[Rfam]
RNA: Bacterial large signal recognition particle RNA
RNA sequence: CCGUGCUAGAUGGGGAACUAGCGGUGCCCUGUAACCUGCAAUCCGCUACAGCAGGAUUGAAUUCCUCGCUUAGGCUCUAGCAUGUGAGGUCUGGUCUAUAAAAGUGGCGUUGAGAAUUGGGUCCUACGCAACAGAAACUCAUGAACCCCGUCAGGUCCGGAAGGAAGCAGCGGUAAGUGAUCAUUUUUGUGUGCCGUAGGGAAACCUGGUUUGAGUUAACUGUAUAGAUAACGCUCAUAUGCUAUCAGUCAAAGCGAGGUGCACGG
Dot-bracket structure: ((((((..(((((((.(((...))).))))....(((((...........)))))))).....(((((((..((((..((((((((((...((..(((((...(((((.....(((((((((((((((((.(((((..((((.....((((....(((....)))....))))...))))....)))))))...))))))...)))))))))..))).))..))))).))...))))))))))...))))..))))))).))))))